This 127-nucleotide sequence from Cebus imitator belongs to the Rfam family "Small nucleolar RNA SNORA11". Rfam describes the family as follows. U107 (SNORA11) is a member of the H/ACA class of snoRNAs that guide the sites of modification of uridines to pseudouridines. This snoRNA was identified by RT-PCR from blood cells and its expression confirmed by Northern blot analysis. There is no predicted target for this guide snRNA. By type it is an H/ACA-box small nucleolar RNA. For this family Rfam cites "A novel experimental approach for systematic identification of box H/ACA snoRNAs from eukaryotes" (Gu et al., Nucleic Acids Res, 2005). Pairs were carried over by alignment from the consensus structure, which was predicted with RNAalifold.

RNA sequence: GGGGUGUGCUUGGAGUAGGGGCCUGAAGAAUGGCUCCUCUGUUUACAACACAUGGAACAGGCAUCUGGGGUCACUGUGACAAGGGGCACAAAAUUUGUGGCUCCCUAAGAACAAAUGUCCCACAAAU
Numbered sequence: 001g002g003g004g005u006g007u008g009c010u011u012g013g014a015g016u017a018g019g020g021g022c023c024u025g026a027a028g029a030a031u032g033g034c035u036c037c038u039c040u041g042u043u044u045a046c047a048a049c050a051c052a053u054g055g056a057a058c059a060g061g062c063a064u065c066u067g068g069g070g071u072c073a074c075u076g077u078g079a080c081a082a083g084g085g086g087c088a089c090a091a092a093a094u095u096u097g098u099g100g101c102u103c104c105c106u107a108a109g110a111a112c113a114a115a116u117g118u119c120c121c122a123c124a125a126a127u
Stems, first nucleotide, its partner, number of pairs: 004053005013044008021034003068120004075113003080109001083103003087099005